[Rfam]
Prevotella-2 RNA: a 116-nucleotide RNA sequence. Rfam classes the family as a small RNA. Rfam's curators put it in the seed alignment.

RNA sequence: GGGCCGAAAGGCCUACUGAAGAUAUGCUUAUCUCCGUUGGGAGAAAGUUUUGUUUAAUUAGUCGUGUAUACUAUAGCUCGUGAGAGUGUAGGUAUACUAAAUCUUAAAAGUUGAGU
Numbered sequence: 001g002g003g004c005c006g007a008a009a010g011g012c013c014u015a016c017u018g019a020a021g022a023u024a025u026g027c028u029u030a031u032c033u034c035c036g037u038u039g040g041g042a043g044a045a046a047g048u049u050u051u052g053u054u055u056a057a058u059u060a061g062u063c064g065u066g067u068a069u070a071c072u073a074u075a076g077c078u079c080g081u082g083a084g085a086g087u088g089u090a091g092g093u094a095u096a097c098u099a100a101a102u103c104u105u106a107a108a109a110g111u112u113g114a115g116u
Stems, first nucleotide, its partner, number of pairs: 001014005020055004026048004031044005067096006076087004
Dot-bracket structure: (((((....))))).....((((..((((.(((((....)))))))))...))))...........((((((...((((....))))...))))))....................